[Rfam]
Notes:
This 106-nucleotide sequence from Paragonimus heterotremus belongs to the Rfam family "mir-16 microRNA precursor family". Gene Ontology terms of the family: miRNA-mediated post-transcriptional gene silencing and RISC complex. A search with the family's covariance model found it, with a score of 37 bits. Clan: mir-15 clan. A reference for the family is Calin et al. (2002), "Frequent deletions and down-regulation of micro- RNA genes miR15 and miR16 at 13q14 in chronic lymphocytic leukemia", Proc Natl Acad Sci U S A. The organism belongs to Paragonimus, within Eukaryota.
RNA sequence: UUAGUACUGUAGCAGCACACCGUUGUGUGGUCAAGAUCAAAUGCCACAGUAAGUCGGCCCGGGCAUAUGACCUUGACCACACAACGGUGUGCUGCUACAGUACUAA
Numbered sequence: 001u002u003a004g005u006a007c008u009g010u011a012g013c014a015g016c017a018c019a020c021c022g023u024u025g026u027g028u029g030g031u032c033a034a035g036a037u038c039a040a041a042u043g044c045c046a047c048a049g050u051a052a053g054u055c056g057g058c059c060c061g062g063g064c065a066u067a068u069g070a071c072c073u074u075g076a077c078c079a080c081a082c083a084a085c086g087g088u089g090u091g092c093u094g095c096u097a098c099a100g101u102a103c104u105a106a
Stems, first nucleotide, its partner, number of pairs: 001106003005102003010099001011096008020086001022085014